Background
This 130-nucleotide RNA from Nyssa sinensis belongs to the Rfam family "small nucleolar RNA snoR137". The base pairs follow the family's consensus structure, which was predicted with RNAalifold. The family has 4 seed sequences and 808 matches in Rfam 15.1. It scores 60 bits against the family's covariance model. Taxonomically the source falls in Nyssa (Eukaryota, Embryophyta, Pentapetalae, Nyssaceae).

RNA sequence: GUUGCUUCUUUGAAAGCGGAAUGACCAUUUUACUGGUUGGUCAUUCAUUUUUAGGAGCAUAUAUCAAAUCCAGUUUUAAACAGCAUAAUGUUCUUUUAUUGCAUUGUGUUACCUGUCUUCUGGUAAAUGC
Numbered sequence: 001g002u003u004g005c006u007u008c009u010u011u012g013a014a015a016g017c018g019g020a021a022u023g024a025c026c027a028u029u030u031u032a033c034u035g036g037u038u039g040g041u042c043a044u045u046c047a048u049u050u051u052u053a054g055g056a057g058c059a060u061a062u063a064u065c066a067a068a069u070c071c072a073g074u075u076u077u078a079a080a081c082a083g084c085a086u087a088a089u090g091u092u093c094u095u096u097u098a099u100u101g102c103a104u105u106g107u108g109u110u111a112c113c114u115g116u117c118u119u120c121u122g123g124u125a126a127a128u129g130c
Stems, first nucleotide, its partner, number of pairs: 003059006011047004016041002019038002070123004082110003086106005